The family of this 200-nucleotide RNA from Plasmodium yoelii is "U2 spliceosomal RNA". Rfam's curators put it in the seed alignment. U2 is a small nuclear RNA (snRNA) component of the spliceosome (involved in pre-mRNA splicing). Complementary binding between U2 snRNA (in an area lying towards the 5' end but 3' to hairpin I) and the branchpoint sequence (BPS) of the intron results the bulging out of an unpaired adenosine, on the BPS, which initiates a nucleophilic attack at the intronic 5' splice site, thus starting the first of two transesterification reactions that mediate splicing. Taxonomically the source falls in Plasmodium yoelii (Eukaryota, Apicomplexa, Plasmodiidae, Vinckeia). It is annotated as a spliceosomal small nuclear RNA.
[Rfam]
RNA sequence: ACCCCUUCUCGGCCUCUUGGCUAAGAUCAAUUUGUAGUACCUGUUCUUAUCAGCGUGAUAGCUGAUAUGGUCUCAAUUGAGACCUUAUCAAUUUUCACAUAAAUUUUUAAUAGGGGAAAGGAUCAUUUGAAGCUUGCUUCUUAUAGCCUUUCGCGCGUUGCCUUACCCUAGCACUAAUAGGUUUGUACAGUGCACCCUUA
Numbered sequence: 001a002c003c004c005c006u007u008c009u010c011g012g013c014c015u016c017u018u019g020g021c022u023a024a025g026a027u028c029a030a031u032u033u034g035u036a037g038u039a040c041c042u043g044u045u046c047u048u049a050u051c052a053g054c055g056u057g058a059u060a061g062c063u064g065a066u067a068u069g070g071u072c073u074c075a076a077u078u079g080a081g082a083c084c085u086u087a088u089c090a091a092u093u094u095u096c097a098c099a100u101a102a103a104u105u106u107u108u109a110a111u112a113g114g115g116g117a118a119a120g121g122a123u124c125a126u127u128u129g130a131a132g133c134u135u136g137c138u139u140c141u142u143a144u145a146g147c148c149u150u151u152c153g154c155g156c157g158u159u160g161c162c163u164u165a166c167c168c169u170a171g172c173a174c175u176a177a178u179a180g181g182u183u184u185g186u187a188c189a190g191u192g193c194a195c196c197c198u199u200a
Base pairs, nucleotide, nucleotide: 007026008025009024011022012021013020014019048067049066050065051064052063053062069084070083071082072081073080074079116152117151118150119149120148121147123145129140130139131138132137155193156192157191158190159189160188162185165182166181167180